[Rfam]
RNA sequence: UGAAUGCCUUGGCAUCAGAUGGCGAAGAAGGACGCAGCAGGCUGCGAAAAGCCACGGGGAGUUGCGAGUAAGCGUAGAUCCGUGGAUAUCCGAAUGGGGAAACCCGGCAGGGGUAAAACCCUGUCAUCAUAGGUUGAAUACAUAGACCUAUGAGGCGAACCCGGGGAAGUGAAACAUCUCAGUACCCGGAGGAAAAGAAAUCAAAAGAGAUUCCCUCAGUAGCGGCGAGCGAACGGGGAAGAGCCCAAACCCGGGAAGACGCUGAGUCUAUGAACAGAAGUUGGAGUUAUGGUGUAAGAGUUCGUAGAUUGAGAGUCUUUUCGGGGGUUGUAGGACCGCAACAACUAUUAUGACUAUAUAGUCGAACAUGUAUGGAACGAUGGACCAUAGAAGGUGAUAGUCCUGUAGACGAAAUGUAGUUAUAAGGUAGCGGUAUCCUGAGUACCACGGGACACGUGGAAUCCCGUGGGAAGCUGGGGGGACCACCCUCCAAGGCUAAAUACACGCUGAUGACCGAUAGCGCAUAGUACCGUGAGGGAAAGGUGAAAAGAACCCCGGUGAGGGGAGUGAAAUAGAACCUGAAC
Numbered sequence: 001u002g003a004a005u006g007c008c009u010u011g012g013c014a015u016c017a018g019a020u021g022g023c024g025a026a027g028a029a030g031g032a033c034g035c036a037g038c039a040g041g042c043u044g045c046g047a048a049a050a051g052c053c054a055c056g057g058g059g060a061g062u063u064g065c066g067a068g069u070a071a072g073c074g075u076a077g078a079u080c081c082g083u084g085g086a087u088a089u090c091c092g093a094a095u096g097g098g099g100a101a102a103c104c105c106g107g108c109a110g111g112g113g114u115a116a117a118a119c120c121c122u123g124u125c126a127u128c129a130u131a132g133g134u135u136g137a138a139u140a141c142a143u144a145g146a147c148c149u150a151u152g153a154g155g156c157g158a159a160c161c162c163g164g165g166g167a168a169g170u171g172a173a174a175c176a177u178c179u180c181a182g183u184a185c186c187c188g189g190a191g192g193a194a195a196a197g198a199a200a201u202c203a204a205a206a207g208a209g210a211u212u213c214c215c216u217c218a219g220u221a222g223c224g225g226c227g228a229g230c231g232a233a234c235g236g237g238g239a240a241g242a243g244c245c246c247a248a249a250c251c252c253g254g255g256a257a258g259a260c261g262c263u264g265a266g267u268c269u270a271u272g273a274a275c276a277g278a279a280g281u282u283g284g285a286g287u288u289a290u291g292g293u294g295u296a297a298g299a300g301u302u303c304g305u306a307g308a309u310u311g312a313g314a315g316u317c318u319u320u321u322c323g324g325g326g327g328u329u330g331u332a333g334g335a336c337c338g339c340a341a342c343a344a345c346u347a348u349u350a351u352g353a354c355u356a357u358a359u360a361g362u363c364g365a366a367c368a369u370g371u372a373u374g375g376a377a378c379g380a381u382g383g384a385c386c387a388u389a390g391a392a393g394g395u396g397a398u399a400g401u402c403c404u405g406u407a408g409a410c411g412a413a414a415u416g417u418a419g420u421u422a423u424a425a426g427g428u429a430g431c432g433g434u435a436u437c438c439u440g441a442g443u444a445c446c447a448c449g450g451g452a453c454a455c456g457u458g459g460a461a462u463c464c465c466g467u468g469g470g471a472a473g474c475u476g477g478g479g480g481g482a483c484c485a486c487c488c489u490c491c492a493a494g495g496c497u498a499a500a501u502a503c504a505c506g507c508u509g510a511u512g513a514c515c516g517a518u519a520g521c522g523c524a525u526a527g528u529a530c531c532g533u534g535a536g537g538g539a540a541a542g543g544u545g546a547a548a549a550g551a552a553c554c555c556c557g558g559u560g561a562g563g564g565g566a567g568u569g570a571a572a573u574a575g576a577a578c579c580u581g582a583a584c
Stems, first nucleotide, its partner, number of pairs: 006579001007543002011515002013512006020504002022156002030091003033046003052085007061073003096105003106125007127153009160191001161189005171178002201208002211500001212239005222230002242497004250325011332439003336433004348425012361410003367383001369382003386390001392404003445469008476491005530537002553565004
Shown here is a 584-nucleotide part of an RNA from uncultured Nitrospirae bacterium MY3-5B, a member of the family "Bacterial large subunit ribosomal RNA".
On this family, see Yusupov et al., Science 2001: "Crystal structure of the ribosome at 5.5 A resolution".
The source organism's lineage runs through Bacteria, Pseudomonadati and Nitrospirota.